This 130-nucleotide RNA from Diatraea saccharalis belongs to the Rfam family "Small Cajal body specific RNA 8". The organism belongs to Diatraea, within Eukaryota. It scores 64 bits against the family's covariance model. A reference for the family is Darzacq et al. (2002), "Cajal body-specific small nuclear RNAs: a novel class of 2'-O-methylation and pseudouridylation guide RNAs", EMBO J.

RNA sequence: UUGGAUUAAGAUACAAGUUACAUAAUCAAAUACUUAUGUAACUUCACAUGUAAUCCAUAAAUUAAUCAUUCCUUCUGAAGACUUUUUUGUUGUGAGUCUUGCAAGAAAGACAGAUACGAGGAAAACAUUG
Numbered sequence: 001u002u003g004g005a006u007u008a009a010g011a012u013a014c015a016a017g018u019u020a021c022a023u024a025a026u027c028a029a030a031u032a033c034u035u036a037u038g039u040a041a042c043u044u045c046a047c048a049u050g051u052a053a054u055c056c057a058u059a060a061a062u063u064a065a066u067c068a069u070u071c072c073u074u075c076u077g078a079a080g081a082c083u084u085u086u087u088u089g090u091u092g093u094g095a096g097u098c099u100u101g102c103a104a105g106a107a108a109g110a111c112a113g114a115u116a117c118g119a120g121g122a123a124a125a126c127a128u129u130g
Base pairs, nucleotide, nucleotide: 002057003056004055005054006053007052015044016043017042018041022037023036024035025034069123070122071121072120073119074118082109083108084107087104088103089102090101
Dot-bracket structure: .((((((.......((((...((((........))))...)))).......))))))...........((((((.......(((..((((..........))))..)))........)))))).......